[Rfam]
RNA sequence: CACUCUGGAAAGCGGCGAGGCUCGCGCCUCGCCCACCGAAGGGCGUAACCGUUCGCGCUACCCACGGGACCGCGGCGGGAAAUCUCUCAGGUCGACGACAGAGGG
Numbered sequence: 001c002a003c004u005c006u007g008g009a010a011a012g013c014g015g016c017g018a019g020g021c022u023c024g025c026g027c028c029u030c031g032c033c034c035a036c037c038g039a040a041g042g043g044c045g046u047a048a049c050c051g052u053u054c055g056c057g058c059u060a061c062c063c064a065c066g067g068g069a070c071c072g073c074g075g076c077g078g079g080a081a082a083u084c085u086c087u088c089a090g091g092u093c094g095a096c097g098a099c100a101g102a103g104g105g
Stems, first nucleotide, its partner, number of pairs: 001105001003103005014033006035092003038088002042086002045084001049079002